[Rfam]
RNA sequence: AUCACAAUAACGCUGAGUCCUGUUGCAAACAGGAACGGGGGAACCGAACAAGCAGCAAAAUCUGCUCUUUCACUCAGAACAGCUGCUUACGGGGUGAAUCGCCAGAGCAACUCCUGGCGUAGGGCAUUCUUUCGUGUCCGAAUCCGUCAGCUAACUCCGUAAGCGUACGAAAGAGAGGAU
Numbered sequence: 001a002u003c004a005c006a007a008u009a010a011c012g013c014u015g016a017g018u019c020c021u022g023u024u025g026c027a028a029a030c031a032g033g034a035a036c037g038g039g040g041g042a043a044c045c046g047a048a049c050a051a052g053c054a055g056c057a058a059a060a061u062c063u064g065c066u067c068u069u070u071c072a073c074u075c076a077g078a079a080c081a082g083c084u085g086c087u088u089a090c091g092g093g094g095u096g097a098a099u100c101g102c103c104a105g106a107g108c109a110a111c112u113c114c115u116g117g118c119g120u121a122g123g124g125c126a127u128u129c130u131u132u133c134g135u136g137u138c139c140g141a142a143u144c145c146g147u148c149a150g151c152u153a154a155c156u157c158c159g160u161a162a163g164c165g166u167a168c169g170a171a172a173g174a175g176a177g178g179a180u
Base pairs, nucleotide, nucleotide: 011165012164013163014162018034019033020032021031022030023029024028035160036159037158038157039156040155045091046090092145093144094143100119101118102117103116104115105114122139123138124137125136
RNA: c-di-AMP riboswitch aptamer (ydaO/yuaA leader)
Organism: Paenibacillus roseus